[Rfam]
RNA: tRNA
RNA sequence: GCCCCCGUAGCCCAACUGGCAGAGGCAGUCGACUUAAAAUCGACAAAGUGCGGGUUCGAAUCCCGUCGGGGGCA
Numbered sequence: 001g002c003c004c005c006c007g008u009a010g011c012c013c014a015a016c017u018g019g020c021a022g023a024g025g026c027a028g029u030c031g032a033c034u035u036a037a038a039a040u041c042g043a044c045a046a047a048g049u050g051c052g053g054g055u056u057c058g059a060a061u062c063c064c065g066u067c068g069g070g071g072g073c074a
Stems, first nucleotide, its partner, number of pairs: 001073007010026003028044005050066005